The record is a 62-nucleotide RNA sequence from Nomascus leucogenys, which matches "U7 small nuclear RNA" in Rfam. The match comes from Rfam's covariance-model search (48 bits). NCBI's taxonomy places the organism under Eukaryota, Vertebrata, Teleostomi, Tetrapoda, Nomascus.
RNA sequence: AAAUAUUAAGAACUCUUUUAGAAUUUGUCUAGCAGGUUUUCUGGUUUCUACUGGAAGCUUCU
Numbered sequence: 001a002a003a004u005a006u007u008a009a010g011a012a013c014u015c016u017u018u019u020a021g022a023a024u025u026u027g028u029c030u031a032g033c034a035g036g037u038u039u040u041c042u043g044g045u046u047u048c049u050a051c052u053g054g055a056a057g058c059u060u061c062u
Base pairs, nucleotide, nucleotide: 035059036058037057038056039055041054042053043052044051045050